[Rfam]
RNA sequence: CCGCUCCCUACCAACGAGCCGCCGGAUCUCCCCGUGAGGAGGCCGGGGCCAUCGGAUCCAGUGACCUCGUUCUCCUUGCCGGCGGAUCCGGCAGCCCAGAGAAAGGAACGA
Numbered sequence: 001c002c003g004c005u006c007c008c009u010a011c012c013a014a015c016g017a018g019c020c021g022c023c024g025g026a027u028c029u030c031c032c033c034g035u036g037a038g039g040a041g042g043c044c045g046g047g048g049c050c051a052u053c054g055g056a057u058c059c060a061g062u063g064a065c066c067u068c069g070u071u072c073u074c075c076u077u078g079c080c081g082g083c084g085g086a087u088c089c090g091g092c093a094g095c096c097c098a099g100a101g102a103a104a105g106g107a108a109c110g111a
Stems, first nucleotide, its partner, number of pairs: 005107003009103001011101001016097001018095002021092009031082002034079009044069005050063003054059001

The record is a 111-nucleotide RNA sequence from Oryza barthii, which matches "MIR1846 microRNA precursor family" in Rfam. Gene Ontology terms of the family: miRNA-mediated post-transcriptional gene silencing and RISC complex. The family's consensus secondary structure was predicted with RNAalifold. The organism belongs to Oryza, within Eukaryota.